[Rfam]
c-di-AMP riboswitch aptamer (ydaO/yuaA leader): a 201-nucleotide sequence from Paenibacillus validus.
RNA sequence: AAUUCUAAUUCGCUUAAUUUCCCUUUGGGAAAGCGGGGGAACCAAACUCGAGCUUUGCUUAUUGGUGUGAGAGCCAAAAAUCAAAGUUUGAAGGGGUGAAUCCUUGGACACAAACAUCGGUAGUGUUUUUGUCCGAGGUAGGGUGCAACUCUCACCACCCGAAUCCGUCAGCUAACCUCGUAAGCGUUGUGUGGAGGAGAU
Numbered sequence: 001a002a003u004u005c006u007a008a009u010u011c012g013c014u015u016a017a018u019u020u021c022c023c024u025u026u027g028g029g030a031a032a033g034c035g036g037g038g039g040a041a042c043c044a045a046a047c048u049c050g051a052g053c054u055u056u057g058c059u060u061a062u063u064g065g066u067g068u069g070a071g072a073g074c075c076a077a078a079a080a081u082c083a084a085a086g087u088u089u090g091a092a093g094g095g096g097u098g099a100a101u102c103c104u105u106g107g108a109c110a111c112a113a114a115c116a117u118c119g120g121u122a123g124u125g126u127u128u129u130u131g132u133c134c135g136a137g138g139u140a141g142g143g144u145g146c147a148a149c150u151c152u153c154a155c156c157a158c159c160c161g162a163a164u165c166c167g168u169c170a171g172c173u174a175a176c177c178u179c180g181u182a183a184g185c186g187u188u189g190u191g192u193g194g195a196g197g198a199g200a201u
Stems, first nucleotide, its partner, number of pairs: 011186004018032003033181006043093001094166003102138009141160004

Gene Ontology terms of the family: regulation of gene expression and cyclic-di-AMP binding.